The family of this 203-nucleotide RNA from Neogobius melanostomus is "Small nucleolar RNA SNORA73 family". By type it is an H/ACA-box small nucleolar RNA. NCBI's taxonomy places the organism under Eukaryota, Eumetazoa, Percomorphaceae, Benthophilinae, Neogobius. Rfam links the family to the GO terms nucleolus and RNA processing. Rfam describes the family as follows. U17 (SNORA73A and SNORA73B) also known as E1 belongs to the H/ACA class of small nucleolar RNAs (snoRNAs).
[Rfam]
RNA sequence: UCGACGUGGGUGUUGCCGUCAGUUCCGGCCCCCGAGUGGCGUUUGGGCGCGUAGCUCUCGAGCUGAGACGAACAUGCCCCUUCCACGACGUCGAACACAAAGCUGCUCCCGGCUUCGGCUGCGAGGACGGCGCCUGCAUAUUCCUACAUCUCCCAGAGUCCUUUGGGCUGUGACUGGGCAGAACGACCAUGCGGGAAACAAAC
Number, nucleotide and partner (000 for none) at each position: 001u094002c093003g092004a091005c090006g089007u088008g033009g032010g031011u000012g029013u028014u027015g026016c000017c000018g000019u000020c000021a000022g000023u000024u000025c000026c015027g014028g013029c012030c000031c010032c009033c008034g000035a000036g086037u085038g084039g083040c000041g000042u000043u000044u000045g079046g078047g077048c076049g073050c000051g000052u070053a000054g000055c065056u000057c000058u000059c000060g000061a000062g000063c000064u000065g055066a000067g000068a000069c000070g052071a000072a000073c049074a000075u000076g048077c047078c046079c045080c000081u000082u000083c039084c038085a037086c036087g000088a007089c006090g005091u004092c003093g002094a001095a000096c000097a000098c000099a000100a000101a000102g000103c000104u000105g000106c000107u000108c000109c000110c000111g000112g000113c000114u000115u000116c000117g000118g000119c000120u000121g000122c000123g000124a000125g000126g000127a000128c000129g000130g000131c000132g000133c195134c194135u193136g192137c191138a190139u189140a000141u000142u000143c000144c000145u000146a000147c000148a000149u000150c181151u180152c178153c177154c176155a000156g000157a000158g168159u167160c166161c165162u000163u000164u000165g161166g160167g159168c158169u000170g000171u000172g000173a000174c000175u000176g154177g153178g152179c000180a151181g150182a000183a000184c000185g000186a000187c000188c000189a139190u138191g137192c136193g135194g134195g133196a000197a000198a000199c000200a000201a000202a000203c000